Notes: The family of this 130-nucleotide RNA from Malurus cyaneus is "Small nucleolar RNA SNORA55". Pairs were carried over by alignment from the consensus structure, which was predicted with PFOLD.
RNA sequence: GCACCUGCUUGUUCCUGUUCCUCGCUGUGCAGUGCAGGGCUGGGGACACUCAGUGCUACAGCACAGCAGUGGAAAUCCAGAUGGGUUCUUUUCCACUGUUGGGACUCAUCUCUACACCUCUGCAACAGCA
Numbered sequence: 001g002c003a004c005c006u007g008c009u010u011g012u013u014c015c016u017g018u019u020c021c022u023c024g025c026u027g028u029g030c031a032g033u034g035c036a037g038g039g040c041u042g043g044g045g046a047c048a049c050u051c052a053g054u055g056c057u058a059c060a061g062c063a064c065a066g067c068a069g070u071g072g073a074a075a076u077c078c079a080g081a082u083g084g085g086u087u088c089u090u091u092u093c094c095a096c097u098g099u100u101g102g103g104a105c106u107c108a109u110c111u112c113u114a115c116a117c118c119u120c121u122g123c124a125a126c127a128g129c130a
Base pairs, nucleotide, nucleotide: 001056002055003054004053012046013045014044015043016042017041020038021037066123067122068121069120071118079111080110081109082108083107084106085105086104093102094101095100